[Rfam]
Nucleotides: 095
Stems, first nucleotide, its partner, number of pairs: 003094003007090003012085006019078002022075020
Number, partner (000 for none) and nucleotide at each position: 001000u002000a003094u004093g005092a006000c007090a008089u009088u010000a011000u012085g013084a014083g015082a016081u017080u018000a019078u020077g021000c022075c023074a024073c025072a026071u027070c028069a029068u030067c031066a032065c033064u034063u035062g036061a037060a038059a039058a040057u041056u042000u043000a044000a045000a046000u047000u048000u049000u050000u051000a052000u053000a054000u055000a056041a057040a058039u059038u060037u061036u062035c063034g064033g065032g066031u067030g068029a069028u070027g071026a072025u073024g074023u075022g076000c077020u078019a079000c080017a081016a082015u083014u084013u085012u086000a087000g088009a089008a090007u091000a092005u093004c094003a095000c

Background:
Rfam assigns this 95-nucleotide RNA sequence from Gossypium raimondii to the family "MIR8675 microRNA precursor family". The source organism's lineage runs through Eukaryota, Gunneridae, Pentapetalae, malvids and Gossypium. Rfam links the family to the GO terms RISC complex and miRNA-mediated post-transcriptional gene silencing. The family's consensus secondary structure was predicted with RNAalifold.